[Rfam]
This 72-nucleotide RNA sequence from Aporhodopirellula sallentina belongs to the Rfam family "int-alpA RNA".
Rfam describes the family as follows. Acidobacteria (1 example), Planctomycetes (1 example), Proteobacteria.
The organism belongs to Aporhodopirellula sallentina, within Bacteria.
Pairs were carried over by alignment from the consensus structure, which is taken from published work.
The match comes from Rfam's covariance-model search (38 bits).
RNA sequence: GCAACGGCUAGGCUGAUCCCCGAAAACCGGUCUUCAUCAACCGGCCCGCCGUUGCUCUUUUUACCUUUGAUG
Numbered sequence: 001g002c003a004a005c006g007g008c009u010a011g012g013c014u015g016a017u018c019c020c021c022g023a024a025a026a027c028c029g030g031u032c033u034u035c036a037u038c039a040a041c042c043g044g045c046c047c048g049c050c051g052u053u054g055c056u057c058u059u060u061u062u063a064c065c066u067u068u069g070a071u072g
Stems, first nucleotide, its partner, number of pairs: 001055008011021002027044005034072001037069001